[Rfam]
The family of this 71-nucleotide RNA from Orthoflavivirus nilense is "General Flavivirus exoribonuclease-resistant RNA element".
The base pairs follow the family's consensus structure, which was predicted with LocARNA.
The exoribonuclease-resistant RNA elements (xrRNA) are described throughout all groups of flaviviruses.
The sequence is in the family's curated seed alignment.
A reference for the family is Pijlman et al. (2008), "A highly structured, nuclease-resistant, noncoding RNA produced by flaviviruses is required for pathogenicity", Cell Host Microbe.
RNA sequence: CACCGUCAGACCACACCGAGGUGUGCCACUCAGCGGAGAGUGCGGUCUGCGCAGCCCCAGGAGGACUGGGU
Numbered sequence: 001c002a003c004c005g006u007c008a009g010a011c012c013a014c015a016c017c018g019a020g021g022u023g024u025g026c027c028a029c030u031c032a033g034c035g036g037a038g039a040g041u042g043c044g045g046u047c048u049g050c051g052c053a054g055c056c057c058c059a060g061g062a063g064g065a066c067u068g069g070g071u
Stems, first nucleotide, its partner, number of pairs: 005052002007049005012025004029040003056070005